[Rfam]
RNA sequence: GGCGAUAAACGGCCGAUGAAAUAAGCCAUUCGGACCCGGGGGCGGUACCCGGCGCCUCCACCACAAGCUGCCGGCCACGGCAUCUUCUGAUGGGGGCGAAAUAGGAUCGACGAGGGUGUAAAGAUCGCGCUUUUGCCCGGCAUGAUACCGCCGUUAUCGGGUCAAACCUAUAGUUGCCAACGACAACUAUGCUGAGGCACGUCUCGCUGCGUAA
Numbered sequence: 001g002g003c004g005a006u007a008a009a010c011g012g013c014c015g016a017u018g019a020a021a022u023a024a025g026c027c028a029u030u031c032g033g034a035c036c037c038g039g040g041g042g043c044g045g046u047a048c049c050c051g052g053c054g055c056c057u058c059c060a061c062c063a064c065a066a067g068c069u070g071c072c073g074g075c076c077a078c079g080g081c082a083u084c085u086u087c088u089g090a091u092g093g094g095g096g097c098g099a100a101a102u103a104g105g106a107u108c109g110a111c112g113a114g115g116g117u118g119u120a121a122a123g124a125u126c127g128c129g130c131u132u133u134u135g136c137c138c139g140g141c142a143u144g145a146u147a148c149c150g151c152c153g154u155u156a157u158c159g160g161g162u163c164a165a166a167c168c169u170a171u172a173g174u175u176g177c178c179a180a181c182g183a184c185a186a187c188u189a190u191g192c193u194g195a196g197g198c199a200c201g202u203c204u205c206g207c208u209g210c211g212u213a214a
Stems, first nucleotide, its partner, number of pairs: 001137005014127004026116002030113003036052005053098007138153004
The family of this 214-nucleotide sequence from Mesorhizobium australicum is "permuted transfer-messenger RNA". The literature on the family includes a 1996 paper in RNA by Williams and Bartel, "Phylogenetic analysis of tmRNA secondary structure". Rfam describes the family as follows. Bacterial tmRNA, also known as 10Sa RNA or SsrA, is named for its dual tRNA and mRNA-like properties. Its role is to liberate the mRNA from a stalled ribosome. To accomplish this part of the tmRNA is used as a reading frame that ends in a translation stop signal. The broken mRNA is replaced in the ribosome by the tmRNA and translation of the tmRNA leads to addition of a proteolysis tag to the incomplete protein enabling recognition by a protease. It is annotated as a non-coding RNA gene. Pairs were carried over by alignment from the consensus structure, which is taken from published work.